Notes: mir-194 microRNA precursor family: an 85-nucleotide RNA from Acipenser ruthenus. It scores 76 bits against the family's covariance model.

RNA sequence: UGGUGCUCUCUGUAUGUAACAGCAACUCCAUGUGGAAGUUGAUUGGUUGAAUUCCAGUGGGGGUGCUGUUAUCUGCAGUGUGACA
Numbered sequence: 001u002g003g004u005g006c007u008c009u010c011u012g013u014a015u016g017u018a019a020c021a022g023c024a025a026c027u028c029c030a031u032g033u034g035g036a037a038g039u040u041g042a043u044u045g046g047u048u049g050a051a052u053u054c055c056a057g058u059g060g061g062g063g064u065g066c067u068g069u070u071a072u073c074u075g076c077a078g079u080g081u082g083a084c085a
Stems, first nucleotide, its partner, number of pairs: 010078003016072008026062006033056003
The family has 46 seed sequences and 936 matches in Rfam 15.1. Its family is annotated with RISC complex and miRNA-mediated post-transcriptional gene silencing in the Gene Ontology.